[Rfam]
RNA sequence: GUGAGGUGAGGUAGUAGGUUGUAUAGUUUGUGGGAGGGAUUACAUCCCAUUUCAGGUGAUAACUAUACAGUCUAUUGCCUUCCUUAA
Numbered sequence: 001g002u003g004a005g006g007u008g009a010g011g012u013a014g015u016a017g018g019u020u021g022u023a024u025a026g027u028u029u030g031u032g033g034g035a036g037g038g039a040u041u042a043c044a045u046c047c048c049a050u051u052u053c054a055g056g057u058g059a060u061a062a063c064u065a066u067a068c069a070g071u072c073u074a075u076u077g078c079c080u081u082c083c084u085u086a087a
Base pairs, nucleotide, nucleotide: 002086003085004084005083006082008081009080010079011078012077013076014075015074016073017072018071019070020069021068022067023066024065025064026063027062032048033047034046035045051058
A member of the RNA family "let-7 microRNA precursor family" from Pogona vitticeps, 87 nucleotides long. On this family, see Rougvie, Nat Rev Genet 2001: "Control of developmental timing in animals". Clan: let-7 microRNA precursor clan. Pairs were carried over by alignment from the consensus structure, which was predicted with RNAalifold. From the family's description: This family represents the microRNAs (miRNA) let-7 and mir-98. let-7 was identified from a study of developmental timing in C. elegans, and was later shown to be part of a much larger class of non-coding RNAs termed miRNAs. Rfam 15.1 lists 8,694 matches to the family in 797 species. The match comes from Rfam's covariance-model search (72 bits).